[Rfam]
RNA sequence: CGCAUUUCUUUGCUCACAUACGGACAAUUGGCAUCAGCUCUGGGUUUCAUCGCCCUUUGCUUCCUUUUUGUUUUAAUCACUAUGCAAAUGAGAAAUUCGGAGUAAUCUUCAAAGCACUACACCGUUGUCGUUAUGGCAUACGGCGGCCCGCGAGGGCAAGGGAUGAUUUCAUUCCUGCUGAGACAUCAGAAAAUCAAGCGCCUUUUCGUGCCUCUUUUUCUUCCUCUUUUUUUUGCUCUCUCGGUUCUUCUUCGGAUGGACUUGGGGGAGUGGGAGAGAGCUAGUGAGAGAGGCGGCAGGGAGGGAUGCUAUGGGAGUCGAAGCGAAGAUCGUGGGUUGAGCCACUUUAGUGCAAUUUGCGGCGUGCUGUUCGAAAGAAUGGUAUAAUUCGAUUCCGAUUACUCUGUG
Numbered sequence: 001c002g003c004a005u006u007u008c009u010u011u012g013c014u015c016a017c018a019u020a021c022g023g024a025c026a027a028u029u030g031g032c033a034u035c036a037g038c039u040c041u042g043g044g045u046u047u048c049a050u051c052g053c054c055c056u057u058u059g060c061u062u063c064c065u066u067u068u069u070g071u072u073u074u075a076a077u078c079a080c081u082a083u084g085c086a087a088a089u090g091a092g093a094a095a096u097u098c099g100g101a102g103u104a105a106u107c108u109u110c111a112a113a114g115c116a117c118u119a120c121a122c123c124g125u126u127g128u129c130g131u132u133a134u135g136g137c138a139u140a141c142g143g144c145g146g147c148c149c150g151c152g153a154g155g156g157c158a159a160g161g162g163a164u165g166a167u168u169u170c171a172u173u174c175c176u177g178c179u180g181a182g183a184c185a186u187c188a189g190a191a192a193a194u195c196a197a198g199c200g201c202c203u204u205u206u207c208g209u210g211c212c213u214c215u216u217u218u219u220c221u222u223c224c225u226c227u228u229u230u231u232u233u234u235g236c237u238c239u240c241u242c243g244g245u246u247c248u249u250c251u252u253c254g255g256a257u258g259g260a261c262u263u264g265g266g267g268g269a270g271u272g273g274g275a276g277a278g279a280g281c282u283a284g285u286g287a288g289a290g291a292g293g294c295g296g297c298a299g300g301g302a303g304g305g306a307u308g309c310u311a312u313g314g315g316a317g318u319c320g321a322a323g324c325g326a327a328g329a330u331c332g333u334g335g336g337u338u339g340a341g342c343c344a345c346u347u348u349a350g351u352g353c354a355a356u357u358u359g360c361g362g363c364g365u366g367c368u369g370u371u372c373g374a375a376a377g378a379a380u381g382g383u384a385u386a387a388u389u390c391g392a393u394u395c396c397g398a399u400u401a402c403u404c405u406g407u408g
Stems, first nucleotide, its partner, number of pairs: 001361004009088004023072005098397005107328004146157004159176006177324003182319002197310003364385007